[Rfam]
RNA sequence: GCUCUGUGAUGAUCCCCCAUGCGUGUCAGCUGAGCCCAGCUUCCCCUGUUCUCCCAGGUCUAAGUGGGUGUCUUACCCUCUAGUCUUUCUGGGCUGGCGGAGGUCUGUGUGCACAUGAUCUCUCUUUAACCCUGAGAGC
Numbered sequence: 001g002c003u004c005u006g007u008g009a010u011g012a013u014c015c016c017c018c019a020u021g022c023g024u025g026u027c028a029g030c031u032g033a034g035c036c037c038a039g040c041u042u043c044c045c046c047u048g049u050u051c052u053c054c055c056a057g058g059u060c061u062a063a064g065u066g067g068g069u070g071u072c073u074u075a076c077c078c079u080c081u082a083g084u085c086u087u088u089c090u091g092g093g094c095u096g097g098c099g100g101a102g103g104u105c106u107g108u109g110u111g112c113a114c115a116u117g118a119u120c121u122c123u124c125u126u127u128a129a130c131c132c133u134g135a136g137a138g139c
Base pairs, nucleotide, nucleotide: 001139002138003137004136044102046100047099048098049097050096
The record is a 139-nucleotide RNA sequence from Vombatus ursinus, which matches "Small nucleolar RNA SNORD10" in Rfam. For this family Rfam cites "RNomics: an experimental approach that identifies 201 candidates for novel, small, non-messenger RNAs in mouse" (Huttenhofer et al., EMBO J, 2001). The organism belongs to Vombatus, within Eukaryota. It is annotated as a C/D-box small nucleolar RNA. Pairs were carried over by alignment from the consensus structure, which was predicted with WAR.